The record is a 68-nucleotide sequence from Pseudomonas mangrovi, which matches "sucC RNA" in Rfam.
[Rfam]
RNA sequence: GUCACAGGUGGCGUGGUGCCAAAAGCGCUGCGCUGUAUGCGCAAUACCCAACGAAGACGGUAGACAAG
Numbered sequence: 001g002u003c004a005c006a007g008g009u010g011g012c013g014u015g016g017u018g019c020c021a022a023a024a025g026c027g028c029u030g031c032g033c034u035g036u037a038u039g040c041g042c043a044a045u046a047c048c049c050a051a052c053g054a055a056g057a058c059g060g061u062a063g064a065c066a067a068g
Stems, first nucleotide, its partner, number of pairs: 009035006016028004